[Rfam]
RNA: mir-36_2 microRNA precursor family
Organism: Litomosoides sigmodontis
RNA sequence: UCCAGGAUGUGCACUGUGGUUCAUGCUGUGAAAAUAUUCGCAUCACCGGGUGCACAUUCGGCCA
Numbered sequence: 001u002c003c004a005g006g007a008u009g010u011g012c013a014c015u016g017u018g019g020u021u022c023a024u025g026c027u028g029u030g031a032a033a034a035u036a037u038u039c040g041c042a043u044c045a046c047c048g049g050g051u052g053c054a055c056a057u058u059c060g061g062c063c064a
Stems, first nucleotide, its partner, number of pairs: 003061001005059011017048003021045001024042002027040002